[Rfam]
RNA sequence: AACGAUGUUUUCUAGGGUUCCGUAUCGAAAGGUAGUCUGGUCCGAGAGAAAACGCACGACUUAUUGUUGUGACACGGAAGGAUAAAAGCCUGGGAGAU
Dot-bracket structure: ......((((((..((...(((((((....))))..).)).))....)))))).((((((.....)))))).(.[...(((.......))).)..]..

Shown here is a 98-nucleotide sequence from Paenisporosarcina cavernae, a member of the family "Guanidine-I riboswitch aptamer". Rfam's curators write: This family represents a conserved RNA structure found upstream of the ykkC and yxkD genes in Bacillus subtilis and related genes in other bacteria. The pairing is the family consensus, mapped onto this sequence.